[Rfam]
The family of this 93-nucleotide sequence from Nicotiana tabacum is "MIR6152 microRNA precursor family". The match comes from Rfam's covariance-model search (72 bits).
RNA sequence: UGUAUUCGACUGUAUUCAACUGUAUUCACGGAAUGAAACAGGGGAUUACACUAUUUUUAAACGAAAGUGAAUCAAUUAACAUAGUAGACUCCU
Number, nucleotide and partner (000 for none) at each position: 001u000002g090003u000004a000005u000006u000007c087008g000009a085010c084011u083012g082013u081014a000015u079016u078017c000018a077019a076020c000021u074022g073023u000024a072025u071026u070027c069028a068029c067030g000031g000032a000033a000034u000035g057036a056037a055038a054039c000040a052041g051042g000043g000044g000045a000046u000047u000048a000049c000050a000051c041052u040053a000054u038055u037056u036057u035058u000059a000060a000061a000062c000063g000064a000065a000066a000067g029068u028069g027070a026071a025072u024073c022074a021075a000076u019077u018078a016079a015080c000081a013082u012083a011084g010085u009086a000087g007088a000089c000090u002091c000092c000093u000

Rfam links the family to the GO terms RISC complex and miRNA-mediated post-transcriptional gene silencing.